[Rfam]
RNA sequence: UGAUACCCACCAGUGAGUCUCGAGUACAAAGGGGCCAGUGAAGAUCACCGCAGUGUUUUUGGUCAGCUGAUGAAUUUUGUGUGGAAGACGUCUUGAGCAGAAACCUGCUGCCUCGACUAGGGAUCCUGUUAAGUUUGUGGUGAUCAUAGGACAGGCAUUGAGUAGCUGUGAAUUAUUUGUGGAAGGUUUGAAAAAGGCUUUAAAGGCGAGAAGGAUAAAGGUUAAAACACAUGACUUAGUUGCAUUUUUUGAUGUUGUAAAAGACAUUUGCCCAU
Numbered sequence: 001u002g003a004u005a006c007c008c009a010c011c012a013g014u015g016a017g018u019c020u021c022g023a024g025u026a027c028a029a030a031g032g033g034g035c036c037a038g039u040g041a042a043g044a045u046c047a048c049c050g051c052a053g054u055g056u057u058u059u060u061g062g063u064c065a066g067c068u069g070a071u072g073a074a075u076u077u078u079g080u081g082u083g084g085a086a087g088a089c090g091u092c093u094u095g096a097g098c099a100g101a102a103a104c105c106u107g108c109u110g111c112c113u114c115g116a117c118u119a120g121g122g123a124u125c126c127u128g129u130u131a132a133g134u135u136u137g138u139g140g141u142g143a144u145c146a147u148a149g150g151a152c153a154g155g156c157a158u159u160g161a162g163u164a165g166c167u168g169u170g171a172a173u174u175a176u177u178u179g180u181g182g183a184a185g186g187u188u189u190g191a192a193a194a195a196g197g198c199u200u201u202a203a204a205g206g207c208g209a210g211a212a213g214g215a216u217a218a219a220g221g222u223u224a225a226a227a228c229a230c231a232u233g234a235c236u237u238a239g240u241u242g243c244a245u246u247u248u249u250u251g252a253u254g255u256u257g258u259a260a261a262a263g264a265c266a267u268u269u270g271c272c273c274a275u
Stems, first nucleotide, its partner, number of pairs: 006033003013027003036050001038048002088129003091123002097111004135154004141149001142147001159202003162198002210250007219237006260275001263272001265270001